Rfam assigns this 82-nucleotide RNA sequence from Anaerosolibacter carboniphilus to the family "Clostridiales-2 RNA". Lineage of the source: Bacteria > Bacillota > Clostridia > Peptostreptococcales > Anaerosolibacter. Rfam 15.1 lists 285 matches to the family in 26 species. The family's consensus secondary structure is taken from published work. The match comes from Rfam's covariance-model search (71 bits).
[Rfam]
RNA sequence: AAAAAAGCAGGGGUGCAGGGGAAGAAUUCCCAUGCCGCAGUCAGAGGGCUGUUCAGGCUGCUUUGCAGCCGUCGAAGGGGAA
Numbered sequence: 001a002a003a004a005a006a007g008c009a010g011g012g013g014u015g016c017a018g019g020g021g022a023a024g025a026a027u028u029c030c031c032a033u034g035c036c037g038c039a040g041u042c043a044g045a046g047g048g049c050u051g052u053u054c055a056g057g058c059u060g061c062u063u064u065g066c067a068g069c070c071g072u073c074g075a076a077g078g079g080g081a082a
Base pairs, nucleotide, nucleotide: 015035016034017033019031020030021029022028056070057069058068059067060066
Dot-bracket structure: ..............(((.((((.....)))).)))....................(((((.....)))))............